[Rfam]
RNA sequence: CUCUUAUUCAGAGCGGUGGAGAUACAUAGGAUCUGUGAAACCCGGCAACCCCUGUUUUCAGGAAGGUGCUAACCUGAGCGAGCAAUCGAACAAUAAGGG
Numbered sequence: 001c002u003c004u005u006a007u008u009c010a011g012a013g014c015g016g017u018g019g020a021g022a023u024a025c026a027u028a029g030g031a032u033c034u035g036u037g038a039a040a041c042c043c044g045g046c047a048a049c050c051c052c053u054g055u056u057u058u059c060a061g062g063a064a065g066g067u068g069c070u071a072a073c074c075u076g077a078g079c080g081a082g083c084a085a086u087c088g089a090a091c092a093a094u095a096a097g098g099g
Stems, first nucleotide, its partner, number of pairs: 001099008013043001015042003021033003027078001030075001044070004049066002051062004079088003
Rfam assigns this 99-nucleotide sequence from Lachnoclostridium sp. An196 to the family "SAM riboswitch aptamer (S box leader)". A search with the family's covariance model found it, with a score of 68 bits. Rfam's curators write: The SAM riboswitch is found upstream of a number of genes which code for proteins involved in methionine or cysteine biosynthesis in Gram-positive bacteria. The base pairs follow the family's consensus structure, which is taken from published work. The organism belongs to Lachnoclostridium, within Bacteria.